About this RNA:
The family of this 143-nucleotide sequence from Anaerosolibacter carboniphilus is "Ribosomal protein L10 leader".
[Rfam]
RNA sequence: UGAAAAUAUGAAUAUAAACCGUAGACAGUAGGAACCCGAUUGGGUUUAAAAUAUCCUACCGAGGUUGAGACUAUAGAUUUCAAUUUAUUGAAAAUUAUAGAACCUCUCUAUGUCUGCGGCAGAGAGGUUCUGUUAUUUUAUAU
Dot-bracket structure: ...........................(((((((((......)))........))))))..........................................((((((((.(.......).))))))))...............
Numbered sequence: 001u002g003a004a005a006a007u008a009u010g011a012a013u014a015u016a017a018a019c020c021g022u023a024g025a026c027a028g029u030a031g032g033a034a035c036c037c038g039a040u041u042g043g044g045u046u047u048a049a050a051a052u053a054u055c056c057u058a059c060c061g062a063g064g065u066u067g068a069g070a071c072u073a074u075a076g077a078u079u080u081c082a083a084u085u086u087a088u089u090g091a092a093a094a095u096u097a098u099a100g101a102a103c104c105u106c107u108c109u110a111u112g113u114c115u116g117c118g119g120c121a122g123a124g125a126g127g128u129u130c131u132g133u134u135a136u137u138u139u140a141u142a143u
Stems, first nucleotide, its partner, number of pairs: 028059006034045003102128008111119001

Rfam classes the family as a cis-regulatory leader.